[Rfam]
RNA sequence: UUCUUAUCAAGAGAGACUGAGGGACAGGCCCGAUGACGUUUCAGCAACCAGCCUAACGGCAAGGUGCUAAUUCCUGCAGGGAGAGCCCCCUGUAAGAUAAGAA
Numbered sequence: 001u002u003c004u005u006a007u008c009a010a011g012a013g014a015g016a017c018u019g020a021g022g023g024a025c026a027g028g029c030c031c032g033a034u035g036a037c038g039u040u041u042c043a044g045c046a047a048c049c050a051g052c053c054u055a056a057c058g059g060c061a062a063g064g065u066g067c068u069a070a071u072u073c074c075u076g077c078a079g080g081g082a083g084a085g086c087c088c089c090c091u092g093u094a095a096g097a098u099a100a101g102a103a
Stems, first nucleotide, its partner, number of pairs: 001103008013042005021031003025076004043068004048064002051060003072095001077092005
SAM riboswitch aptamer (S box leader): a 103-nucleotide RNA from Alkalicoccus halolimnae. Gene Ontology term of the family: regulation of gene expression. A reference for the family is Grundy and Henkin (1998), "The S box regulon: a new global transcription termination control system for methionine and cysteine biosynthesis genes in gram-positive bacteria", Mol Microbiol. Rfam describes the family as follows. The SAM riboswitch is found upstream of a number of genes which code for proteins involved in methionine or cysteine biosynthesis in Gram-positive bacteria. Pairs were carried over by alignment from the consensus structure, which is taken from published work.